[Rfam]
RNA: mir-29 microRNA precursor family
Organism: Scleropages formosus
RNA sequence: GGAAGCUGGUUUCACAUGGUGGUUUAGAUGUAUGCCCCGGGGUCUAGCACCAUUUGAAAUCAGUGUUCC
Numbered sequence: 001g002g003a004a005g006c007u008g009g010u011u012u013c014a015c016a017u018g019g020u021g022g023u024u025u026a027g028a029u030g031u032a033u034g035c036c037c038c039g040g041g042g043u044c045u046a047g048c049a050c051c052a053u054u055u056g057a058a059a060u061c062a063g064u065g066u067u068c069c
Base pairs, nucleotide, nucleotide: 001069002068003067004066005064006063007062008061009060010059011058012057013056014055016053017052018051019050020049021048025046026045027044028043